[Rfam]
RNA sequence: CUUGACCGAGCCGAGCCACAGUGGACGCUCGCGCUCCUGACCGUACGCGGCAAGCAGCGCCUGCGCCUC
Numbered sequence: 001c002u003u004g005a006c007c008g009a010g011c012c013g014a015g016c017c018a019c020a021g022u023g024g025a026c027g028c029u030c031g032c033g034c035u036c037c038u039g040a041c042c043g044u045a046c047g048c049g050g051c052a053a054g055c056a057g058c059g060c061c062u063g064c065g066c067c068u069c
Base pairs, nucleotide, nucleotide: 016024017023028065030063032059033058037054038053041050042049043048

ASpks TB sRNA: a 69-nucleotide RNA sequence from Phytohabitans flavus. It is annotated as an antisense RNA. The match comes from Rfam's covariance-model search (66 bits). The source organism's lineage runs through Bacteria, Actinomycetota, Micromonosporales, Micromonosporaceae and Phytohabitans. The family's consensus secondary structure is taken from published work.